[Rfam]
RNA sequence: AACGACGAAGCCGAAAAUCGUUAAGAGUAGGCA
Numbered sequence: 001a002a003c004g005a006c007g008a009a010g011c012c013g014a015a016a017a018u019c020g021u022u023a024a025g026a027g028u029a030g031g032c033a
Base pairs, nucleotide, nucleotide: 002021003020004019005018010032011031012030
This 33-nucleotide RNA belongs to the Rfam family "DUF805b RNA". Pairs were carried over by alignment from the consensus structure, which is taken from published work.